[Rfam]
RNA sequence: AACGAAAAAGGCAAACUAUUUGAAAAAAUAGGACGCAAAGUUACGGGUCUAAGGGAUUCUGUUAUUUCCUAUUGAUCGCCGGAUCACCAAAU
Numbered sequence: 001a002a003c004g005a006a007a008a009a010g011g012c013a014a015a016c017u018a019u020u021u022g023a024a025a026a027a028a029u030a031g032g033a034c035g036c037a038a039a040g041u042u043a044c045g046g047g048u049c050u051a052a053g054g055g056a057u058u059c060u061g062u063u064a065u066u067u068c069c070u071a072u073u074g075a076u077c078g079c080c081g082g083a084u085c086a087c088c089a090a091a092u
Base pairs, nucleotide, nucleotide: 001092004088011036012035016031017030018029019028020027021026034078040084041083042082044081045080046079047076048075049074
Dot-bracket structure: (..(......((...((((((....))))))..[))...(((.((((((........................))).]))))))...)...)